[Rfam]
RNA sequence: AGCCUAAGUCCCGCAAGGGAUAUGGCACAAAAUCCUACGCGAAUAAAGAUGGUCUUCUGACCAGCACUUGUUACUUAGGUCUAUAUCCGAAAGGAUGUAGGGCGGUUCCGAAAGGAGCUGUC
Number, nucleotide and partner (000 for none) at each position: 001a000002g026003c025004c024005u000006a000007a000008g000009u020010c019011c018012c017013g000014c000015a000016a000017g012018g011019g010020a009021u000022a000023u000024g004025g003026c002027a000028c000029a000030a000031a000032a000033u000034c079035c078036u077037a076038c000039g074040c000041g072042a071043a000044u000045a000046a000047a000048g065049a000050u063051g062052g061053u060054c059055u000056u000057c000058u000059g054060a053061c052062c051063a050064g000065c048066a000067c000068u000069u000070g000071u042072u041073a000074c039075u000076u037077a036078g035079g034080u000081c100082u099083a098084u097085a096086u095087c094088c093089g000090a000091a000092a000093g088094g087095a086096u085097g084098u083099a082100g081101g122102g121103c120104g119105g118106u117107u116108c115109c114110g000111a000112a000113a000114g109115g108116a107117g106118c105119u104120g103121u102122c101

The family of this 122-nucleotide sequence is "LOOT RNA".